[Rfam]
RNA sequence: AUCUAUACUGAGUGGCCAGAUUACUAUGAUCUCUGAAUGCAUAAUAAUCUGGCCACUCAGUGUAUGC
Numbered sequence: 001a002u003c004u005a006u007a008c009u010g011a012g013u014g015g016c017c018a019g020a021u022u023a024c025u026a027u028g029a030u031c032u033c034u035g036a037a038u039g040c041a042u043a044a045u046a047a048u049c050u051g052g053c054c055a056c057u058c059a060g061u062g063u064a065u066g067c
Base pairs, nucleotide, nucleotide: 004064005063006062007061008060009059010058011057012056013055014054015053016052017051019049020048021047022046023045025043026042027041028040
mir-9256 microRNA precursor family: a 67-nucleotide sequence from Pipistrellus kuhlii. The match comes from Rfam's covariance-model search (81 bits). Gene Ontology terms of the family: RISC complex and miRNA-mediated post-transcriptional gene silencing. The source organism's lineage runs through Eukaryota, Tetrapoda, Eutheria, Laurasiatheria and Pipistrellus.